[Rfam]
RNA sequence: GGGGAUCUUCGGAGCCCUAUAACCUCCGGGCCACGGCAUUCGGCCGCGCCCGCAAGCAGACGGAAGACAGAAA
Numbered sequence: 001g002g003g004g005a006u007c008u009u010c011g012g013a014g015c016c017c018u019a020u021a022a023c024c025u026c027c028g029g030g031c032c033a034c035g036g037c038a039u040u041c042g043g044c045c046g047c048g049c050c051c052g053c054a055a056g057c058a059g060a061c062g063g064a065a066g067a068c069a070g071a072a073a
Stems, first nucleotide, its partner, number of pairs: 001018004006014001008012001028051004032046001035045002